[Rfam]
RNA sequence: UGAAGACUGUUCCUCCUAUGGCCCUUGGGCCUGGCACUAGGACUUUAGGUCAUCAUAAAUUAAAAUUUGACUUUCUUCACUCAGAGGAGAUAAGGAUAAUGGGAUUAUCUAUGCUGAGAUUUGCAGAAUCAAACACUU
Number, nucleotide and partner (000 for none) at each position: 001u055002g054003a053004a000005g051006a050007c049008u048009g000010u000011u000012c000013c000014u042015c041016c040017u039018a038019u000020g000021g035022c034023c033024c000025u000026u000027g000028g000029g000030c000031c000032u000033g023034g022035c021036a000037c000038u018039a017040g016041g015042a014043c000044u000045u000046u000047a000048g008049g007050u006051c005052a000053u003054c002055a001056u000057a000058a000059a000060u000061u000062a000063a000064a000065a000066u000067u000068u000069g130070a129071c000072u127073u126074u125075c000076u000077u000078c000079a000080c000081u117082c116083a115084g114085a000086g000087g000088a000089g000090a000091u000092a000093a000094g110095g109096a108097u107098a106099a000100u000101g000102g000103g000104a000105u000106u098107a097108u096109c095110u094111a000112u000113g000114c084115u083116g082117a081118g000119a000120u000121u000122u000123g000124c000125a074126g073127a072128a000129u070130c069131a000132a000133a000134c000135a000136c000137u000138u000